[Rfam]
RNA sequence: AUGCCUUAAACUGAUGAGUAAGGAAAAUAACGACGCGGGGUGACGCCCGUGUCCUCGUAACAAUUGCGAGAUGAAUUUUUGAAAGGGCAUAGGUCUACCUGUUGAGGUGACUCGCUUACUUCGCGAGAUGCCUCGCAGGAUUAGGACCUUUCCC
Numbered sequence: 001a002u003g004c005c006u007u008a009a010a011c012u013g014a015u016g017a018g019u020a021a022g023g024a025a026a027a028u029a030a031c032g033a034c035g036c037g038g039g040g041u042g043a044c045g046c047c048c049g050u051g052u053c054c055u056c057g058u059a060a061c062a063a064u065u066g067c068g069a070g071a072u073g074a075a076u077u078u079u080u081g082a083a084a085g086g087g088c089a090u091a092g093g094u095c096u097a098c099c100u101g102u103u104g105a106g107g108u109g110a111c112u113c114g115c116u117u118a119c120u121u122c123g124c125g126a127g128a129u130g131c132c133u134c135g136c137a138g139g140a141u142u143a144g145g146a147c148c149u150u151u152c153c154c
Stems, first nucleotide, its partner, number of pairs: 004023005032053008054070005085153003091149004095144003100137002105133005111127005
Description: A member of the RNA family "U12 minor spliceosomal RNA" from Scophthalmus maximus, 154 nucleotides long. The family is grouped with related families in Rfam's "U2 clan". Lineage of the source: Eukaryota > Euteleosteomorpha > Neoteleostei > Acanthomorphata > Scophthalmus.